[Rfam]
Rfam assigns this 180-nucleotide RNA sequence from Delftia acidovorans to the family "RT-15 RNA".
RNA sequence: GCGCGCCCGCCGCCGGCCUGUCACGGCAAGUCGGCCAUGGCGCCUUGGAAUCUGGUCGAGCCGCUGGGCCACAAGCCCACCGACAGGCGCAGCAGGGAUAUCGCCGGCAGCAGCCGUAGUGAUCCCGCGCAGUUCGCCCGCUGAGCACUCUGCGGGCCGACGUGAAUGCUCGACACCCCU
Numbered sequence: 001g002c003g004c005g006c007c008c009g010c011c012g013c014c015g016g017c018c019u020g021u022c023a024c025g026g027c028a029a030g031u032c033g034g035c036c037a038u039g040g041c042g043c044c045u046u047g048g049a050a051u052c053u054g055g056u057c058g059a060g061c062c063g064c065u066g067g068g069c070c071a072c073a074a075g076c077c078c079a080c081c082g083a084c085a086g087g088c089g090c091a092g093c094a095g096g097g098a099u100a101u102c103g104c105c106g107g108c109a110g111c112a113g114c115c116g117u118a119g120u121g122a123u124c125c126c127g128c129g130c131a132g133u134u135c136g137c138c139c140g141c142u143g144a145g146c147a148c149u150c151u152g153c154g155g156g157c158c159g160a161c162g163u164g165a166a167u168g169c170u171c172g173a174c175a176c177c178c179c180u
Stems, first nucleotide, its partner, number of pairs: 004042003012035006019028003056173006062082002065079005087130004095126004101122002105116004133160002136157006143150002

The sequence is in the family's curated seed alignment.